[Rfam]
RNA sequence: UGAUAGCUGUGAAGCGUGAGGUUGCCGGUUCCCAGUAAUGGAGAUCGGGUUUUCCGUGGAGCGAAUGUCAAGUUAGAAAACUGACGGCAA
Numbered sequence: 001u002g003a004u005a006g007c008u009g010u011g012a013a014g015c016g017u018g019a020g021g022u023u024g025c026c027g028g029u030u031c032c033c034a035g036u037a038a039u040g041g042a043g044a045u046c047g048g049g050u051u052u053u054c055c056g057u058g059g060a061g062c063g064a065a066u067g068u069c070a071a072g073u074u075a076g077a078a079a080a081c082u083g084a085c086g087g088c089a090a
Base pairs, nucleotide, nucleotide: 014057015056016055018054019053020052021051025048026047027046028045029044066089067088068087069086072085073084074083075082
RNA: S10-Clostridia ribosomal protein leader